[Rfam]
RNA sequence: CAAUUGUCACACGGGAGCAUGGCCGAAACCAUGCUGAGAGGACGCCACCUAGAAGGCGGGGCGUCGACCGUUUAACCUGUCCGGAUAAUGCCGGCGUAGGGAGGAAUCAUGAAACGUCA
Dot-bracket structure: .....((..(((((..(((((........)))))......(((((...............)))))..))))....((((.((((......))))..))))..)..))............
This 119-nucleotide RNA from Corynebacterium epidermidicanis belongs to the Rfam family "TPP riboswitch aptamer (THI element)". A search with the family's covariance model found it, with a score of 58 bits. The family's consensus secondary structure is taken from published work.